RNA sequence: AGAACAUGUUGAUGAUUGUUUAAUUAUUCCGAAAAAUUCAUGAAUGGAAUAACAAACCUCCUACUCAUUCUGA
Numbered sequence: 001a002g003a004a005c006a007u008g009u010u011g012a013u014g015a016u017u018g019u020u021u022a023a024u025u026a027u028u029c030c031g032a033a034a035a036a037u038u039c040a041u042g043a044a045u046g047g048a049a050u051a052a053c054a055a056a057c058c059u060c061c062u063a064c065u066c067a068u069u070c071u072g073a
Base pairs, nucleotide, nucleotide: 006068007067008066027048028047
Small nucleolar RNA Z105: a 73-nucleotide RNA from Lactuca sativa. The base pairs follow the family's consensus structure, which was predicted with CMfinder. A reference for the family is Chen et al. (2003), "The high diversity of snoRNAs in plants: identification and comparative study of 120 snoRNA genes from Oryza sativa", Nucleic Acids Res. By type it is a C/D-box small nucleolar RNA. Its family is annotated with nucleolus and RNA processing in the Gene Ontology.